[Rfam]
RNA sequence: UGCUGUAUGAAGCCGAGAGAAAAAGGUUCUGGACGGGGGUGCGAAUCCCCCCAGGUCCACCAAAAGAAAAUUUGACAGGAUGCAUACUGUGGCCAACCAGUGAUGGAGCCGACCGUGAAAGGUUUCAAGUUUUCUUUUGCUGGGCCUGACCAGUUUCGACAGGGCACAGAGUAUCAAAGCAGACAGCACGUCAGGAGUAGACGUAAAAAGCAAAACAACGUAAACGCAAACGACGAACAGUUCGCAUUGGCGGCCUAA
Numbered sequence: 001u002g003c004u005g006u007a008u009g010a011a012g013c014c015g016a017g018a019g020a021a022a023a024a025g026g027u028u029c030u031g032g033a034c035g036g037g038g039g040u041g042c043g044a045a046u047c048c049c050c051c052c053a054g055g056u057c058c059a060c061c062a063a064a065a066g067a068a069a070a071u072u073u074g075a076c077a078g079g080a081u082g083c084a085u086a087c088u089g090u091g092g093c094c095a096a097c098c099a100g101u102g103a104u105g106g107a108g109c110c111g112a113c114c115g116u117g118a119a120a121g122g123u124u125u126c127a128a129g130u131u132u133u134c135u136u137u138u139g140c141u142g143g144g145c146c147u148g149a150c151c152a153g154u155u156u157c158g159a160c161a162g163g164g165c166a167c168a169g170a171g172u173a174u175c176a177a178a179g180c181a182g183a184c185a186g187c188a189c190g191u192c193a194g195g196a197g198u199a200g201a202c203g204u205a206a207a208a209a210g211c212a213a214a215a216c217a218a219c220g221u222a223a224a225c226g227c228a229a230a231c232g233a234c235g236a237a238c239a240g241u242u243c244g245c246a247u248u249g250g251c252g253g254c255c256u257a258a
Stems, first nucleotide, its partner, number of pairs: 001188005017175001026165002029162003035051005052148007189203004
Rfam assigns this 258-nucleotide RNA sequence from an Actinomycetota bacterium to the family "permuted transfer-messenger RNA". From the family's description: Bacterial tmRNA, also known as 10Sa RNA or SsrA, is named for its dual tRNA and mRNA-like properties. Its role is to liberate the mRNA from a stalled ribosome. To accomplish this part of the tmRNA is used as a reading frame that ends in a translation stop signal. Its family is annotated with RNA catabolic process in the Gene Ontology. NCBI's taxonomy places the organism under Bacteria, Bacillati, Actinomycetota.